RNA sequence: GGAGGGGUAGUGGUCCUCCGAGAUCUGCCUGCAGGGGUCGGUCUCAAACUGCCUCCGAGUGGCAUUGGUUAAAGACCGUUGUCGCGAGCGUCGGAGGAAAAGUAAUGUUUGAACAUUGCAAGU
Numbered sequence: 001g002g003a004g005g006g007g008u009a010g011u012g013g014u015c016c017u018c019c020g021a022g023a024u025c026u027g028c029c030u031g032c033a034g035g036g037g038u039c040g041g042u043c044u045c046a047a048a049c050u051g052c053c054u055c056c057g058a059g060u061g062g063c064a065u066u067g068g069u070u071a072a073a074g075a076c077c078g079u080u081g082u083c084g085c086g087a088g089c090g091u092c093g094g095a096g097g098a099a100a101a102g103u104a105a106u107g108u109u110u111g112a113a114c115a116u117u118g119c120a121a122g123u
Base pairs, nucleotide, nucleotide: 001019002018003017004016005015020045021044022043023042024041025040027038028037029036030035050122052097053096055094056093057092058091059085060084062082063081064080066078067077068076069075102119103118104117105116106115107114

Notes
A member of the RNA family "Group II catalytic intron D1-D4-2" from Granulosicoccus antarcticus, 123 nucleotides long. It scores 82 bits against the family's covariance model. Group II introns are found in rRNA, tRNA and mRNA of organelles in fungi, plants and protists, and also in mRNA in bacteria. Pairs were carried over by alignment from the consensus structure. A reference for the family is Bonen and Vogel (2001), "The ins and outs of group II introns", Trends Genet.